[Rfam]
RNA sequence: GCGCGUGUGGCGAAAUGGCAGACGCAAACGGCUCAGACCCGUAAAGCUGGAGGUUCGAGUCCUCCGACGCGCA
Numbered sequence: 001g002c003g004c005g006u007g008u009g010g011c012g013a014a015a016u017g018g019c020a021g022a023c024g025c026a027a028a029c030g031g032c033u034c035a036g037a038c039c040c041g042u043a044a045a046g047c048u049g050g051a052g053g054u055u056c057g058a059g060u061c062c063u064c065c066g067a068c069g070c071g072c073a
Stems, first nucleotide, its partner, number of pairs: 001072006010025003028042004049065005
Dot-bracket structure: ((((((...(((..........)))..((((.......))))......(((((.......))))).)))))).